[Rfam]
RNA sequence: AUUCUAAGCAUUGCACCCAGGGUCUGGGCCACCAGACAUUGUACCUGGAGCUUAUUUCUUCAUUAUAAACCUUUUU
Numbered sequence: 001a002u003u004c005u006a007a008g009c010a011u012u013g014c015a016c017c018c019a020g021g022g023u024c025u026g027g028g029c030c031a032c033c034a035g036a037c038a039u040u041g042u043a044c045c046u047g048g049a050g051c052u053u054a055u056u057u058c059u060u061c062a063u064u065a066u067a068a069a070c071c072u073u074u075u076u
Stems, first nucleotide, its partner, number of pairs: 005054005017048004022037005
RNA: U1A polyadenylation inhibition element (PIE)
Organism: Synaphobranchus kaupii